Small nucleolar RNA SNORA72: a 132-nucleotide RNA sequence from Ailuropoda melanoleuca. Rfam's curators write: U72 is a member of the H/ACA class of snoRNAs. The snoRNA gene is located in intron 4 of the ribosomal L30 protein gene in human, mouse and chicken. The base pairs follow the family's consensus structure, which was predicted with PFOLD. A reference for the family is Ganot et al. (1997), "The family of box ACA small nucleolar RNAs is defined by an evolutionarily conserved secondary structure and ubiquitous sequence elements essential for RNA accumulation", Genes Dev. The family has 29 seed sequences and 1,541 matches in Rfam 15.1. The family's RNA type in Rfam is H/ACA-box small nucleolar RNA. Taxonomically the source falls in Ailuropoda (Eukaryota, Deuterostomia, Amniota, Eutheria).
Nucleotides: 132
Base pairs, nucleotide, nucleotide: 003057004056005055016044017043019041020040021039022038023037024036025035026034067125068124070122072121073120082109083108084107085106086105087104088103089102090101091100
Number, partner (000 for none) and nucleotide at each position: 001000c002000u003057g004056u005055g006000a007000a008000u009000a010000u011000u012000c013000u014000u015000g016044c017043u018000a019041u020040u021039c022038u023037g024036a025035u026034u027000u028000u029000g030000u031000a032000a033000u034026a035025a036024u037023c038022a039021g040020g041019g042000c043017a044016g045000g046000c047000u048000a049000a050000g051000c052000a053000u054000u055005c056004a057003c058000u059000a060000u061000a062000u063000u064000a065000a066000g067125a068124c069000g070122a071000u072121g073120c074000a075000u076000g077000c078000g079000u080000c081000c082109u083108c084107a085106g086105a087104c088103c089102u090101a091100g092000u093000u094000c095000u096000u097000u098000c099000c100091c101090u102089a103088g104087g105086u106085c107084u108083g109082g110000u111000u112000u113000u114000a115000g116000a117000a118000a119000u120073g121072c122070u123000g124068g125067u126000g127000a128000u129000a130000a131000a132000u